RtT RNA: a 129-nucleotide RNA sequence from Paramixta manurensis. NCBI's taxonomy places the organism under Bacteria, Pseudomonadota, Enterobacterales, Erwiniaceae, Paramixta. For this family Rfam cites "A novel RNA product of the tyrT operon of Escherichia coli" (Bosl and Kersten, Nucleic Acids Res, 1991). About the family: This family represents a bacterial cis-regulatory element known as RtT RNA. The exact function of RtT is unknown although it is thought that it may be involved in changing the cellular response in relation to amino acid starvation. Pairs were carried over by alignment from the consensus structure, which is taken from published work. The match comes from Rfam's covariance-model search (104 bits). Its family is annotated with cellular response to amino acid starvation in the Gene Ontology.
RNA sequence: UCAUAAUUCCCGACGGGAAGGACGAGAAACUUCGACCCGAAGGUUUGAGUCGAGCAUAGCGAGACAACGCGCACAGCGCGGCCCGCAGGGUGAGGAACGUAGUGACGAAUCAUCCUUCCCCCACCACCA
Numbered sequence: 001u002c003a004u005a006a007u008u009c010c011c012g013a014c015g016g017g018a019a020g021g022a023c024g025a026g027a028a029a030c031u032u033c034g035a036c037c038c039g040a041a042g043g044u045u046u047g048a049g050u051c052g053a054g055c056a057u058a059g060c061g062a063g064a065c066a067a068c069g070c071g072c073a074c075a076g077c078g079c080g081g082c083c084c085g086c087a088g089g090g091u092g093a094g095g096a097a098c099g100u101a102g103u104g105a106c107g108a109a110u111c112a113u114c115c116u117u118c119c120c121c122c123a124c125c126a127c128c129a
Base pairs, nucleotide, nucleotide: 015120016119017118018117019116020115021114033092034091036090037089044087046085047084051061052060068080069079070078071077072076